Shown here is an 83-nucleotide RNA from Comamonas testosteroni, a member of the family "SucA RNA motif". For this family Rfam cites "Identification of 22 candidate structured RNAs in bacteria using the CMfinder comparative genomics pipeline" (Weinberg et al., Nucleic Acids Res, 2007). Rfam classes the family as a cis-regulatory element. NCBI's taxonomy places the organism under Bacteria, Pseudomonadota, Betaproteobacteria, Burkholderiales, Comamonas testosteroni.
RNA sequence: UCGCAUCCGCCAAUCGGUACAGCCGUGUCGCGGGAGGUUCCACAAACCAGCUAAUGCUUUCCGAAGGAAAGCGGAGGUCAGCG
Numbered sequence: 001u002c003g004c005a006u007c008c009g010c011c012a013a014u015c016g017g018u019a020c021a022g023c024c025g026u027g028u029c030g031c032g033g034g035a036g037g038u039u040c041c042a043c044a045a046a047c048c049a050g051c052u053a054a055u056g057c058u059u060u061c062c063g064a065a066g067g068a069a070a071g072c073g074g075a076g077g078u079c080a081g082c083g
Stems, first nucleotide, its partner, number of pairs: 002083003006034005015025004036048004050078003056072007